[Rfam]
RNA sequence: GGAACCGGGUGCGAGGCGAGGGGUGCUGUCUGUGGUUGAGGACACGGCAAAUGGAACUGUCUCACACAGACAUCGCACCCAUCUCCUCGGCCUGCCUU
Numbered sequence: 001g002g003a004a005c006c007g008g009g010u011g012c013g014a015g016g017c018g019a020g021g022g023g024u025g026c027u028g029u030c031u032g033u034g035g036u037u038g039a040g041g042a043c044a045c046g047g048c049a050a051a052u053g054g055a056a057c058u059g060u061c062u063c064a065c066a067c068a069g070a071c072a073u074c075g076c077a078c079c080c081a082u083c084u085c086c087u088c089g090g091c092c093u094g095c096c097u098u
Base pairs, nucleotide, nucleotide: 012089013088014087015086016085018083019082021080022079023078024077025076026075029070030069031068032067033066034065037064038063039062040061041060

Shown here is a 98-nucleotide RNA sequence from Moschus moschiferus, a member of the family "mir-342 microRNA precursor family".
Pairs were carried over by alignment from the consensus structure, which was predicted with RNAalifold.
The source organism's lineage runs through Eukaryota, Gnathostomata, Euteleostomi, Dipnotetrapodomorpha and Moschus.
A reference for the family is Ahn et al. (2010), "MicroRNA transcriptome in the newborn mouse ovaries determined by massive parallel sequencing", Mol Hum Reprod.